The record is a 109-nucleotide sequence from Thalassobacillus cyri, which matches "c-di-GMP-I riboswitch aptamer" in Rfam.
The base pairs follow the family's consensus structure, which is taken from published work.

[Rfam]
RNA sequence: CUUCUGAAAAGGCAAACUUAUCUAAAGGUAAGGACGCAAAGCUACGGGUCUAAGGCCAUCACUUACAAACAAUUAUAUAUUUAGUGGCUAUGACCGCCGGGCUGCCUUG
Numbered sequence: 001c002u003u004c005u006g007a008a009a010a011g012g013c014a015a016a017c018u019u020a021u022c023u024a025a026a027g028g029u030a031a032g033g034a035c036g037c038a039a040a041g042c043u044a045c046g047g048g049u050c051u052a053a054g055g056c057c058a059u060c061a062c063u064u065a066c067a068a069a070c071a072a073u074u075a076u077a078u079a080u081u082u083a084g085u086g087g088c089u090a091u092g093a094c095c096g097c098c099g100g101g102c103u104g105c106c107u108u109g
Base pairs, nucleotide, nucleotide: 012037013036017032018031019030020029021028022027040103041102042101043100045099046098047097048094049093050092055088056087057086058085